[Rfam]
RNA sequence: GGCCGCGUGGCCUAAUGGCUAAGGCGCUAGAUUUCGGUUAACCAAAAUCAUAUUCUCUAGAGAUUCUAGGUUCGAUCCCUAGCGUGGUCG
Numbered sequence: 001g002g003c004c005g006c007g008u009g010g011c012c013u014a015a016u017g018g019c020u021a022a023g024g025c026g027c028u029a030g031a032u033u034u035c036g037g038u039u040a041a042c043c044a045a046a047a048u049c050a051u052a053u054u055c056u057c058u059a060g061a062g063a064u065u066c067u068a069g070g071u072u073c074g075a076u077c078c079c080u081a082g083c084g085u086g087g088u089c090g
Stems, first nucleotide, its partner, number of pairs: 001089007010025004027060005066082005

Notes:
tRNA: a 90-nucleotide RNA from Fusarium flagelliforme. From the family's description: Transfer RNA (tRNA) molecules are approximately 80 nucleotides in length. The organism belongs to Fusarium incarnatum-equiseti species complex, within Eukaryota. Rfam links the family to the GO term triplet codon-amino acid adaptor activity. Pairs were carried over by alignment from the consensus structure, which is taken from published work.